[Rfam]
RNA sequence: GGAUGUGAGGGCGAUCUGGCUGUGACAUCUGUCACCCCAUUGAUCGCCAGGGUUGAUUCGGCUGAUCUGGCUGGCUAGGCGGGUGUCCCCUUCCUCCCUCACCGCUCCAUGUGCGUCCCUCCAGAAGCUGUGCGCUCGGUCGAAGAGGACGACCUUCCCCGAUAGAGACGUACUGUUCAUCGGUCAAGGGUAUACGGUAGCUGCACUCCCCUGCUAGAACCUCCAAACAAGCUCAAGAUACAGGACAGAAAUCCAAUGAAAAAAUCAGAAGCAAUUAAAGUCAAAAAUUGUGCAUUAAUUU
Numbered sequence: 001g002g003a004u005g006u007g008a009g010g011g012c013g014a015u016c017u018g019g020c021u022g023u024g025a026c027a028u029c030u031g032u033c034a035c036c037c038c039a040u041u042g043a044u045c046g047c048c049a050g051g052g053u054u055g056a057u058u059c060g061g062c063u064g065a066u067c068u069g070g071c072u073g074g075c076u077a078g079g080c081g082g083g084u085g086u087c088c089c090c091u092u093c094c095u096c097c098c099u100c101a102c103c104g105c106u107c108c109a110u111g112u113g114c115g116u117c118c119c120u121c122c123a124g125a126a127g128c129u130g131u132g133c134g135c136u137c138g139g140u141c142g143a144a145g146a147g148g149a150c151g152a153c154c155u156u157c158c159c160c161g162a163u164a165g166a167g168a169c170g171u172a173c174u175g176u177u178c179a180u181c182g183g184u185c186a187a188g189g190g191u192a193u194a195c196g197g198u199a200g201c202u203g204c205a206c207u208c209c210c211c212u213g214c215u216a217g218a219a220c221c222u223c224c225a226a227a228c229a230a231g232c233u234c235a236a237g238a239u240a241c242a243g244g245a246c247a248g249a250a251a252u253c254c255a256a257u258g259a260a261a262a263a264a265u266c267a268g269a270a271g272c273a274a275u276u277a278a279a280g281u282c283a284a285a286a287a288u289u290g291u292g293c294a295u296u297a298a299u300u301u
Stems, first nucleotide, its partner, number of pairs: 001108003005102007013093002018090002024087010035074002037070003042067004046062003117170001119167003122139001124137002127135002140162003147158003200254001206248002210244004283301003286296003

This 301-nucleotide sequence from Fregetta grallaria belongs to the Rfam family "7SK RNA". By type it is a non-coding RNA gene. 7SK was discovered as an abundant small nuclear RNA in the mid-70s but a possible function has only recently been suggested. The literature on the family includes a 2002 paper in Curr Biol by Blencowe, "Transcription: surprising role for an elusive small nuclear RNA".